Notes
The record is a 73-nucleotide RNA from Acetobacterium woodii, which matches "tRNA" in Rfam. Pairs were carried over by alignment from the consensus structure, which is taken from published work. Rfam classes the family as a transfer RNA. A search with the family's covariance model found it, with a score of 69 bits. Taxonomically the source falls in Acetobacterium woodii (Bacteria, Bacillota, Clostridia, Acetobacterium). From the family's description: Transfer RNA (tRNA) molecules are approximately 80 nucleotides in length. Gene Ontology term of the family: triplet codon-amino acid adaptor activity.
[Rfam]
RNA sequence: GGGGGUGUAGCUCAGUUGGGAGAGCACCUGCCUUGCAAGCAGGGGGUCAGGAGUUCAAGUCUCCUCAUCUCCA
Numbered sequence: 001g002g003g004g005g006u007g008u009a010g011c012u013c014a015g016u017u018g019g020g021a022g023a024g025c026a027c028c029u030g031c032c033u034u035g036c037a038a039g040c041a042g043g044g045g046g047u048c049a050g051g052a053g054u055u056c057a058a059g060u061c062u063c064c065u066c067a068u069c070u071c072c073a
Stems, first nucleotide, its partner, number of pairs: 001072007010025004027043005049065005